RNA: Small nucleolar RNA SNORD60
RNA sequence: UGCCAGUGAUGUACCCUAAAUUCUGACACCUCAUAUGAAACUGUCAAAAACAGCUUCUUGAUUUUGUCCUUUGGGCUGAGGCAA
Numbered sequence: 001u002g003c004c005a006g007u008g009a010u011g012u013a014c015c016c017u018a019a020a021u022u023c024u025g026a027c028a029c030c031u032c033a034u035a036u037g038a039a040a041c042u043g044u045c046a047a048a049a050a051c052a053g054c055u056u057c058u059u060g061a062u063u064u065u066g067u068c069c070u071u072u073g074g075g076c077u078g079a080g081g082c083a084a
Base pairs, nucleotide, nucleotide: 001083002082003081004080041053042052043051044050